[Rfam]
RNA sequence: GGGGAAUUGGUAGUAGGUGGAGGUUGCGCUAAUCCGGUCAGAUUCGAAAGAAAGCAGCCGUAACGUUAAUUUUUCAGGUUGUUAUUCAGUUCCCCGUU
Numbered sequence: 001g002g003g004g005a006a007u008u009g010g011u012a013g014u015a016g017g018u019g020g021a022g023g024u025u026g027c028g029c030u031a032a033u034c035c036g037g038u039c040a041g042a043u044u045c046g047a048a049a050g051a052a053a054g055c056a057g058c059c060g061u062a063a064c065g066u067u068a069a070u071u072u073u074u075c076a077g078g079u080u081g082u083u084a085u086u087c088a089g090u091u092c093c094c095c096g097u098u
Stems, first nucleotide, its partner, number of pairs: 004092005010085006018076006024068001026066003030062001035060004043052003
A member of the RNA family "Bacterial small signal recognition particle RNA" from Candidatus Pelagibacter sp. IMCC9063, 98 nucleotides long. By type it is a non-coding RNA gene. The signal recognition particle (SRP) is a universally conserved ribonucleoprotein involved in the co-translational targeting of proteins to membranes.